[Rfam]
Description: The record is a 73-nucleotide RNA sequence from Rhizobium sp. BK376, which matches "Makes More Granules Regulator RNA (mmgR)" in Rfam. Its Rfam clan is "suhB sRNA clan". It is annotated as a small RNA. Rfam describes the family as follows. SuhB later renamed mmgR (makes more granules regulator) was a putative non-coding RNA found multiple times in the Agrobacterium tumefaciens genome and related alpha-proteobacteria. The match comes from Rfam's covariance-model search (62 bits).
RNA sequence: UGUAAAUACCCUCCUUGGGUGUUUCCUCCCUAGACUUAGCCGCGCCGCAGGCGCGGUUCUUUUUUUGGGGAUC
Numbered sequence: 001u002g003u004a005a006a007u008a009c010c011c012u013c014c015u016u017g018g019g020u021g022u023u024u025c026c027u028c029c030c031u032a033g034a035c036u037u038a039g040c041c042g043c044g045c046c047g048c049a050g051g052c053g054c055g056g057u058u059c060u061u062u063u064u065u066u067g068g069g070g071a072u073c
Stems, first nucleotide, its partner, number of pairs: 008020004038058009